The family of this 166-nucleotide RNA sequence from Bacillaceae bacterium SAS-127 is "glmS glucosamine-6-phosphate activated ribozyme aptamer".
[Rfam]
RNA sequence: GUUUCUUUAAAAGCGCCUGAACUAGCGGGAGAGAGCCUAGCUAGUUGACGAGGAGGAGGUUUAUCGAACGUUCGGCGGAUGCCUCCCGGUUGAAGGUUGUACAAUCGUUAGUCCUUCCUUAAAACAUAAGGGUAACCUUAUGCACAAAGGGAAUGGGAAAACAACC
Numbered sequence: 001g002u003u004u005c006u007u008u009a010a011a012a013g014c015g016c017c018u019g020a021a022c023u024a025g026c027g028g029g030a031g032a033g034a035g036c037c038u039a040g041c042u043a044g045u046u047g048a049c050g051a052g053g054a055g056g057a058g059g060u061u062u063a064u065c066g067a068a069c070g071u072u073c074g075g076c077g078g079a080u081g082c083c084u085c086c087c088g089g090u091u092g093a094a095g096g097u098u099g100u101a102c103a104a105u106c107g108u109u110a111g112u113c114c115u116u117c118c119u120u121a122a123a124a125c126a127u128a129a130g131g132g133u134a135a136c137c138u139u140a141u142g143c144a145c146a147a148a149g150g151g152a153a154u155g156g157g158a159a160a161a162c163a164a165c166c
Stems, first nucleotide, its partner, number of pairs: 020046007029037001055086005064075004087107006112156002115153004125142007
The organism belongs to Bacillaceae, within Bacteria.